Rfam assigns this 45-nucleotide sequence from Coregonus sp. 'balchen' to the family "Histone 3' UTR stem-loop". Rfam describes the family as follows. The mRNAs of metazoan histone genes lack a poly-A tail. 3' end processing occurs at a site between a highly conserved stem-loop (modelled by this family) and a purine rich region around 20 nts downstream (the histone downstream element, or HDE). The stem-loop is bound by a 31 kDa stem-loop binding protein (SLBP - also termed the histone hairpin binding protein, or HBP). Rfam links the family to the GO term mRNA 3'-end processing by stem-loop binding and cleavage. The family has 50 seed sequences and 44,596 matches in Rfam 15.1.
[Rfam]
RNA sequence: CAAAAGGCUCUUUUAAGAGCCACCCACAGCUAUCACAAAAUGAGC
Numbered sequence: 001c002a003a004a005a006g007g008c009u010c011u012u013u014u015a016a017g018a019g020c021c022a023c024c025c026a027c028a029g030c031u032a033u034c035a036c037a038a039a040a041u042g043a044g045c
Stems, first nucleotide, its partner, number of pairs: 006021006